[Rfam]
RNA sequence: AUUACGACGUUGAAGGAAAAUAGUAGUCAAAAUAGGCAUUUAAGAGACCUUGUGGUUGGUGGAAACAAGGAUGUACUACUGAUGAAUACACUCUGGAGUCUCUAGAUGAAAAGUCUAGACGGGUAAUUCCGUUAUCAAUAUCAAGAGCAUACUAGAUGUAUGAAUAAAGGUGGUACCGCGAGAUUUCGUCCUUUAG
Numbered sequence: 001a002u003u004a005c006g007a008c009g010u011u012g013a014a015g016g017a018a019a020a021u022a023g024u025a026g027u028c029a030a031a032a033u034a035g036g037c038a039u040u041u042a043a044g045a046g047a048c049c050u051u052g053u054g055g056u057u058g059g060u061g062g063a064a065a066c067a068a069g070g071a072u073g074u075a076c077u078a079c080u081g082a083u084g085a086a087u088a089c090a091c092u093c094u095g096g097a098g099u100c101u102c103u104a105g106a107u108g109a110a111a112a113g114u115c116u117a118g119a120c121g122g123g124u125a126a127u128u129c130c131g132u133u134a135u136c137a138a139u140a141u142c143a144a145g146a147g148c149a150u151a152c153u154a155g156a157u158g159u160a161u162g163a164a165u166a167a168a169g170g171u172g173g174u175a176c177c178g179c180g181a182g183a184u185u186u187c188g189u190c191c192u193u194u195a196g
Base pairs, nucleotide, nucleotide: 007099008098015094016093017092026083027082028081029080037073038072039071048070049069050068051067052066053065102118103117104116105115106114107113120131121130122129148162149161150160151159152158167193168192169191170190178189179188180187181186
A member of the RNA family "T-box leader" from Erysipelatoclostridium sp. An173, 196 nucleotides long. The source organism's lineage runs through Bacteria, Bacillati, Bacillota, Erysipelotrichia and Thomasclavelia. It scores 136 bits against the family's covariance model. The family's consensus secondary structure is taken from published work.